[Rfam]
RNA: MIR812 microRNA precursor family
RNA sequence: AAAAAAACAAACCUUAGGAUUCCGUGUUCAACGUUUAACCGUCCGUCUUAUUUAAAAAAAUUGUUAAAAAAAUUAAAAAGACAAAUCACACAUAAAAUAUUAAUCAUGUUUUAUCAUAUAACAACAAUAAAAAUAUUAAUUAUAAAAAUUUUUAUAUAAGAUAGAUAGUCAACGUUGGGCAUGGAAACCUAUAGUUUGUUUUUUU
Numbered sequence: 001a002a003a004a005a006a007a008c009a010a011a012c013c014u015u016a017g018g019a020u021u022c023c024g025u026g027u028u029c030a031a032c033g034u035u036u037a038a039c040c041g042u043c044c045g046u047c048u049u050a051u052u053u054a055a056a057a058a059a060a061u062u063g064u065u066a067a068a069a070a071a072a073u074u075a076a077a078a079a080g081a082c083a084a085a086u087c088a089c090a091c092a093u094a095a096a097a098u099a100u101u102a103a104u105c106a107u108g109u110u111u112u113a114u115c116a117u118a119u120a121a122c123a124a125c126a127a128u129a130a131a132a133a134u135a136u137u138a139a140u141u142a143u144a145a146a147a148a149u150u151u152u153u154a155u156a157u158a159a160g161a162u163a164g165a166u167a168g169u170c171a172a173c174g175u176u177g178g179g180c181a182u183g184g185a186a187a188c189c190u191a192u193a194g195u196u197u198g199u200u201u202u203u204u205u
Stems, first nucleotide, its partner, number of pairs: 027179006035172002038169002041166003045162007